Record summary: This 396-nucleotide RNA from Terrabacter aerolatus belongs to the Rfam family "Bacterial RNase P class A". From the family's description: Ribonuclease P (RNase P) is a ubiquitous endoribonuclease, found in archaea, bacteria and eukarya as well as chloroplasts and mitochondria. Its best characterised activity is the generation of mature 5'-ends of tRNAs by cleaving the 5'-leader elements of precursor-tRNAs. Cellular RNase Ps are ribonucleoproteins. RNA from bacterial RNase Ps retains its catalytic activity in the absence of the protein subunit, i.e. it is a ribozyme. Isolated eukaryotic and archaeal RNase P RNA has not been shown to retain its catalytic function, but is still essential for the catalytic activity of the holoenzyme. Although the archaeal and eukaryotic holoenzyme s have a much greater protein content than the bacterial ones, the RNA cores from all the three lineages are homologous -- helices corresponding to P1, P2, P3, P4, and P10/11 are common to all cellular RNase P RNAs. Yet, there is considerable sequence variation, particularly among the eukaryotic RNAs. Identified in Yersinia as Ysr151/RnpB. Rfam classes the family as a ribozyme.

RNA sequence: UGAGUCGGCCAGACGGUCGCGUCAGGGCCUCGGCCCUGCCGAGGAACGUCCGGGCUCCACAGGGCAGGGUGGUGGCCAACAGCCACCCGGGGUGACCCGCGGGACAGUGCCACAGAGAACAGACCGCCGGCGGCUUCGGCAGCCGGUAAGGGUGAAACGGUGGUGUAAGAGACCACCAGCGGUCCAGGUGACUGGAGCGGCUAGGUAAACCCCACCCGGAGCAAGUCCAGACAGCGCAUGCACGGUGCCCUCGGGCGCCGGGGAGACCGGCCCGGUCGAGUGCGCGGGUAGGACGCUAGAGCCGGUCAGCAAUGGCCGGCCCAGAUGGAUGGCCGUCGCUGCGCCACCGGUGACGGGGGCGCGGAACAGAACCCGGCGUAUCGGCCGACUCAUCCA
Numbered sequence: 001u002g003a004g005u006c007g008g009c010c011a012g013a014c015g016g017u018c019g020c021g022u023c024a025g026g027g028c029c030u031c032g033g034c035c036c037u038g039c040c041g042a043g044g045a046a047c048g049u050c051c052g053g054g055c056u057c058c059a060c061a062g063g064g065c066a067g068g069g070u071g072g073u074g075g076c077c078a079a080c081a082g083c084c085a086c087c088c089g090g091g092g093u094g095a096c097c098c099g100c101g102g103g104a105c106a107g108u109g110c111c112a113c114a115g116a117g118a119a120c121a122g123a124c125c126g127c128c129g130g131c132g133g134c135u136u137c138g139g140c141a142g143c144c145g146g147u148a149a150g151g152g153u154g155a156a157a158c159g160g161u162g163g164u165g166u167a168a169g170a171g172a173c174c175a176c177c178a179g180c181g182g183u184c185c186a187g188g189u190g191a192c193u194g195g196a197g198c199g200g201c202u203a204g205g206u207a208a209a210c211c212c213c214a215c216c217c218g219g220a221g222c223a224a225g226u227c228c229a230g231a232c233a234g235c236g237c238a239u240g241c242a243c244g245g246u247g248c249c250c251u252c253g254g255g256c257g258c259c260g261g262g263g264a265g266a267c268c269g270g271c272c273c274g275g276u277c278g279a280g281u282g283c284g285c286g287g288g289u290a291g292g293a294c295g296c297u298a299g300a301g302c303c304g305g306u307c308a309g310c311a312a313u314g315g316c317c318g319g320c321c322c323a324g325a326u327g328g329a330u331g332g333c334c335g336u337c338g339c340u341g342c343g344c345c346a347c348c349g350g351u352g353a354c355g356g357g358g359g360c361g362c363g364g365a366a367c368a369g370a371a372c373c374c375g376g377c378g379u380a381u382c383g384g385c386c387g388a389c390u391c392a393u394c395c396a
Stems, first nucleotide, its partner, number of pairs: 001392010011381001012337007020041002023038006046379003050376005055221004062273004067217005072086005087101001088099004102212002107210002109206003124151002126147006133140002159177006179201001180199002183196005225294004234285006265277004301320008